[Rfam]
RNA sequence: UCAAAUGGUAGAGGUGCGGUUUUCAACAGUACUGCAGGACGAAGCAUGGGAGCUGUCCGGUGGGAAAGGGGACGCCGCCGAAGGAAUGGGACCCUCCCAUGGGACUGUUUCCUGGGCCGAUGCAGAAUAUGCAGCGGACUGUCACGAAGGUGUGGAGCGCUAUCAUCGUA
Numbered sequence: 001u002c003a004a005a006u007g008g009u010a011g012a013g014g015u016g017c018g019g020u021u022u023u024c025a026a027c028a029g030u031a032c033u034g035c036a037g038g039a040c041g042a043a044g045c046a047u048g049g050g051a052g053c054u055g056u057c058c059g060g061u062g063g064g065a066a067a068g069g070g071g072a073c074g075c076c077g078c079c080g081a082a083g084g085a086a087u088g089g090g091a092c093c094c095u096c097c098c099a100u101g102g103g104a105c106u107g108u109u110u111c112c113u114g115g116g117c118c119g120a121u122g123c124a125g126a127a128u129a130u131g132c133a134g135c136g137g138a139c140u141g142u143c144a145c146g147a148a149g150g151u152g153u154g155g156a157g158c159g160c161u162a163u164c165a166u167c168g169u170a
Stems, first nucleotide, its partner, number of pairs: 006165006016078005022072003032063004037058005082113005089106002092103002114140002117137003121133004142155005
A member of the RNA family "Lysine riboswitch aptamer" from Clostridium sp. AM58-1XD, 170 nucleotides long.
About the family: Riboswitches are metabolite binding domains within certain messenger RNAs that serve as precision sensors for their corresponding targets.
Lineage of the source: Bacteria > Bacillati > Bacillota > Eubacteriales > Clostridium.
The match comes from Rfam's covariance-model search (88 bits).